[Rfam]
RNA sequence: CUCUGGAGAGACUGUCUUAAAUGACGGCACCGAAGGAGCAAAGGAAUUUUAUUCCCUAAACUCUCAGGUAAAAGAACAGAG
Numbered sequence: 001c002u003c004u005g006g007a008g009a010g011a012c013u014g015u016c017u018u019a020a021a022u023g024a025c026g027g028c029a030c031c032g033a034a035g036g037a038g039c040a041a042a043g044g045a046a047u048u049u050u051a052u053u054c055c056c057u058a059a060a061c062u063c064u065c066a067g068g069u070a071a072a073a074g075a076a077c078a079g080a081g
Base pairs, nucleotide, nucleotide: 001081002080003079004078005077012027013026014025015024029069030068031067032065033064036063037062038061043055044054045053046052047051

A member of the RNA family "Glycine riboswitch aptamer" from Leptotrichia hofstadii, 81 nucleotides long. Rfam's curators write: This family represents the bacterial glycine riboswitch. Glycine riboswitches usually consist of two metabolite-binding aptamers domains with similar structures in tandem. The aptamers cooperatively bind glycine to regulate the expression of downstream genes. Its family is annotated with glycine biosynthetic process in the Gene Ontology.